RNA sequence: AAAGCUUAAUCAUCAUCUGUUUCUUAUCAGUUUAAUAUCUGAUACGUCCCCCAUCGGGGGACUACAUAUUAAAUGGAUUUUUCGAACAGGGAGUCGGAAAUGGGGCUUGCUCCGUCCGCCCACGCAUCGACCCGGUAUUGCAGUACUCCGGGAACGGUGCAACACUU
Numbered sequence: 001a002a003a004g005c006u007u008a009a010u011c012a013u014c015a016u017c018u019g020u021u022u023c024u025u026a027u028c029a030g031u032u033u034a035a036u037a038u039c040u041g042a043u044a045c046g047u048c049c050c051c052c053a054u055c056g057g058g059g060g061a062c063u064a065c066a067u068a069u070u071a072a073a074u075g076g077a078u079u080u081u082u083c084g085a086a087c088a089g090g091g092a093g094u095c096g097g098a099a100a101u102g103g104g105g106c107u108u109g110c111u112c113c114g115u116c117c118g119c120c121c122a123c124g125c126a127u128c129g130a131c132c133c134g135g136u137a138u139u140g141c142a143g144u145a146c147u148c149c150g151g152g153a154a155c156g157g158u159g160c161a162a163c164a165c166u167u
Base pairs, nucleotide, nucleotide: 025044026043027042028041029040030039046062047061048060049059050058051057052056090121091120093119094118096116097115102113103112104111105110124160125159126158127157128156129155131152132151133150134149135148
Rfam assigns this 167-nucleotide RNA sequence from Oncorhynchus tshawytscha to the family "U2 spliceosomal RNA". Taxonomically the source falls in Oncorhynchus (Eukaryota, Teleostomi, Osteoglossocephalai, Protacanthopterygii). Its family is annotated with pre-mRNA branch point binding, U2 snRNP and mRNA branch site recognition in the Gene Ontology. Clan: U2 clan.